[Rfam]
RNA sequence: GCCCAGGGGGAAAGAAAAAAUAUAGAAUAAAACACCUAGUAUGGGCAAGCAGGGAGUUGGAAAGAUUCGCGUUUAACCCUAGCC
Numbered sequence: 001g002c003c004c005a006g007g008g009g010g011a012a013a014g015a016a017a018a019a020a021u022a023u024a025g026a027a028u029a030a031a032a033c034a035c036c037u038a039g040u041a042u043g044g045g046c047a048a049g050c051a052g053g054g055a056g057u058u059g060g061a062a063a064g065a066u067u068c069g070c071g072u073u074u075a076a077c078c079c080u081a082g083c084c
Stems, first nucleotide, its partner, number of pairs: 001084001003082001005080004